RNA sequence: CCAUGGAUAAAAAUAAUGUCCACCAUUAUAGAAAUAUAAUGGUUUAAAUCGGGUGAAUUGCAAGAAACUCCAUCUAAUUGGAUAAUUUGCAGCGAAGCAUAUAUCAGUGCUUUAUAGAUAUAUGAACGUUCAACGACUAAUCAGUGAGCCGCACUAGCAAUAAACUGGACACGAGUGCCCGACAACCUGAGUCAUAUGACUCAGGUUGAUGACAUAGUCUGAGCCAUAUGGUAACAUAUGG
Numbered sequence: 001c002c003a004u005g006g007a008u009a010a011a012a013a014u015a016a017u018g019u020c021c022a023c024c025a026u027u028a029u030a031g032a033a034a035u036a037u038a039a040u041g042g043u044u045u046a047a048a049u050c051g052g053g054u055g056a057a058u059u060g061c062a063a064g065a066a067a068c069u070c071c072a073u074c075u076a077a078u079u080g081g082a083u084a085a086u087u088u089g090c091a092g093c094g095a096a097g098c099a100u101a102u103a104u105c106a107g108u109g110c111u112u113u114a115u116a117g118a119u120a121u122a123u124g125a126a127c128g129u130u131c132a133a134c135g136a137c138u139a140a141u142c143a144g145u146g147a148g149c150c151g152c153a154c155u156a157g158c159a160a161u162a163a164a165c166u167g168g169a170c171a172c173g174a175g176u177g178c179c180c181g182a183c184a185a186c187c188u189g190a191g192u193c194a195u196a197u198g199a200c201u202c203a204g205g206u207u208g209a210u211g212a213c214a215u216a217g218u219c220u221g222a223g224c225c226a227u228a229u230g231g232u233a234a235c236a237u238a239u240g241g
Base pairs, nucleotide, nucleotide: 005024008022011019013017049182050181051180052179054177055176059091060090061089062088063087064086069082070081071080072079092129093128104117106115133220135219136218137217138216139215185206186205187204188203189202190201191200192199193198226239227238228237229236230235